[Rfam]
RNA sequence: UUGCAAAAUGAGUUUGAUAAAAAUGUAACAUUUUAGCUUUCUAUAGUAACAAAGUCUAACCUAUUCUGGUGCUCUCCUCUAUGAGACAAGCCGUUAUAUAGACUUAGCCAGU
Numbered sequence: 001u002u003g004c005a006a007a008a009u010g011a012g013u014u015u016g017a018u019a020a021a022a023a024u025g026u027a028a029c030a031u032u033u034u035a036g037c038u039u040u041c042u043a044u045a046g047u048a049a050c051a052a053a054g055u056c057u058a059a060c061c062u063a064u065u066c067u068g069g070u071g072c073u074c075u076c077c078u079c080u081a082u083g084a085g086a087c088a089a090g091c092c093g094u095u096a097u098a099u100a101g102a103c104u105u106a107g108c109c110a111g112u
Stems, first nucleotide, its partner, number of pairs: 001028002004025002052105007062098003067093004073086004
RNA: Small nucleolar RNA SNORA28
Organism: Myotis davidii